RNA sequence: AAUUGAUCGUUCGAUUCAUAAUCUGAGUCUAACUCAGAAAUUGAUAGUGUUAACAUAAGCUUUGUGUCUGGUUUAGGCCUUCAGAUUUUAGUUAAACCAGAACACCAAAUUA
Dot-bracket structure: ..............................................(((((......((((.....((((...........))))....)))).......))))).......
RNA: Small nucleolar RNA snoR97
Organism: Brassica rapa